ZMP/ZTP riboswitch aptamer (pfl RNA motif): a 139-nucleotide RNA from Acidovorax sp. MR-S7.
RNA sequence: AGCGGGGUACGCAACUGGCGAUAGGCGCGGCGCCCCUCCAGGCCCGCCGCUGACGUGGAAAUCCGGCAAAGACCUCUUUGCAAACCACUGGGGAGCGUACCGCGCACCGCGCGAUCCGUCGUUCGCCUGGGCAGCCCUU
Number, nucleotide and partner (000 for none) at each position: 001a000002g000003c104004g103005g000006g101007g100008u099009a098010c097011g096012c095013a000014a000015c092016u091017g127018g126019c125020g124021a123022u000023a000024g000025g000026c000027g000028c000029g000030g000031c000032g000033c000034c000035c000036c000037u000038c000039c000040a000041g000042g000043c000044c000045c000046g000047c000048c000049g000050c000051u000052g000053a000054c000055g088056u087057g086058g085059a000060a000061a000062u000063c000064c000065g000066g000067c000068a000069a000070a000071g000072a000073c000074c000075u000076c000077u000078u000079u000080g000081c000082a000083a000084a000085c058086c057087a056088c055089u000090g000091g016092g015093g000094a000095g012096c011097g010098u009099a008100c007101c006102g000103c004104g003105c000106a000107c000108c000109g000110c000111g000112c000113g000114a000115u000116c134117c000118g132119u131120c130121g000122u000123u021124c020125g019126c018127c017128u000129g000130g120131g119132c118133a000134g116135c000136c000137c000138u000139u000
Lineage of the source: Bacteria > Pseudomonadati > Pseudomonadota > Betaproteobacteria > Acidovorax.